[Rfam]
RNA sequence: AUUUUAUAGAAGAAUUCUAUCCAUAUAAUUCUGAUAAUAAGGUUCAGAAGUUUCUACGAGAAACCGCGAAUUUCUCUCUAUGGGUGAGUCUGUUUCAAUA
Numbered sequence: 001a002u003u004u005u006a007u008a009g010a011a012g013a014a015u016u017c018u019a020u021c022c023a024u025a026u027a028a029u030u031c032u033g034a035u036a037a038u039a040a041g042g043u044u045c046a047g048a049a050g051u052u053u054c055u056a057c058g059a060g061a062a063a064c065c066g067c068g069a070a071u072u073u074c075u076c077u078c079u080a081u082g083g084g085u086g087a088g089u090c091u092g093u094u095u096c097a098a099u100a
Stems, first nucleotide, its partner, number of pairs: 018086008029049006058076006